[Rfam]
RNA sequence: UGGCCUGAAAUGAUGUUCUCAGUUCAUGUCUCUUCUCUGAGGUGUGUCCUGAAGACAGCCAGAUGCAUUUCUGAUCAGGCUG
Dot-bracket structure: (((((........................................................................)))))

The record is an 82-nucleotide RNA sequence from Grantiella picta, which matches "Small nucleolar RNA SNORD111" in Rfam. NCBI's taxonomy places the organism under Eukaryota, Dipnotetrapodomorpha, Telluraves, Australaves, Grantiella. Rfam 15.1 lists 894 matches to the family in 541 species. Gene Ontology terms of the family: nucleolus and RNA processing. It scores 47 bits against the family's covariance model. The family's consensus secondary structure was predicted with RNAalifold.